ZMP/ZTP riboswitch aptamer (pfl RNA motif): a 64-nucleotide RNA from Schaalia odontolytica. Pairs were carried over by alignment from the consensus structure, which is taken from published work.
[Rfam]
RNA sequence: GGGUCGUGACUGGCGAACAGGUGGGAAACCACCGGGGAGCGACCCUUGCCGCCCGCCUGGGCAA
Number, nucleotide and partner (000 for none) at each position: 001g045002g044003g043004u042005c041006g040007u039008g000009a000010c036011u035012g057013g056014c055015g054016a000017a000018c000019a000020g000021g032022u031023g030024g029025g000026a000027a000028a000029c024030c023031a022032c021033c000034g000035g011036g010037g000038a000039g007040c006041g005042a004043c003044c002045c001046u064047u063048g062049c061050c060051g000052c000053c000054c015055g014056c013057c012058u000059g000060g050061g049062c048063a047064a046